Nucleotides: 132
Stems, first nucleotide, its partner, number of pairs: 004052005013046002016041005022035001024033003055071006077118004083108002085105007
Number, partner (000 for none) and nucleotide at each position: 001000u002000a003000c004052u005051g006050c007049a008048g009000u010000g011000a012000a013046c014045a015000c016041c017040c018039a019038g020037g021000u022035g023000u024033g025032c026031u027000u028000u029000a030000u031026a032025g033024u034000u035022c036000u037020c038019u039018u040017g041016g042000c043000u044000u045014u046013g047000a048008c049007u050006g051005u052004a053000c054000u055071a056070g057069a058068g059067c060066a061000a062000u063000g064000c065000c066060u067059g068058u069057u070056c071055u072000c073000u074000a075000c076000c077118u078117c079116u080115g081000c082000a083108u084107u085105g086104a087103a088102a089101g090100g091099a092000c093000u094000a095000u096000a097000g098000a099091u100090u101089c102088u103087u104086u105085u106000a107084a108083a109000c110000a111000u112000a113000u114000u115080c116079a117078g118077a119000a120000a121000g122000u123000u124000a125000u126000c127000a128000c129000a130000u131000u132000a
Rfam assigns this 132-nucleotide RNA sequence from Galemys pyrenaicus to the family "Small nucleolar RNA SNORA22". The source organism's lineage runs through Eukaryota, Deuterostomia, Tetrapoda, Laurasiatheria and Galemys. The family's RNA type in Rfam is H/ACA-box small nucleolar RNA. Rfam links the family to the GO terms nucleolus and RNA processing. Rfam 15.1 lists 883 matches to the family in 606 species. The base pairs follow the family's consensus structure, which was predicted with RNAfold.